Shown here is a 41-nucleotide RNA sequence from Saccharomonospora glauca, a member of the family "L31-Actinobacteria ribosomal protein leader". NCBI's taxonomy places the organism under Bacteria, Bacillati, Pseudonocardiales, Saccharomonospora, Saccharomonospora glauca.

[Rfam]
RNA sequence: CCGGCUCCGGUUCACCCCGCGGGUACGGGGAUCCGGCGGCC
Numbered sequence: 001c002c003g004g005c006u007c008c009g010g011u012u013c014a015c016c017c018c019g020c021g022g023g024u025a026c027g028g029g030g031a032u033c034c035g036g037c038g039g040c041c
Base pairs, nucleotide, nucleotide: 003041004040005039007036008035009034010033015030016029017028018027019026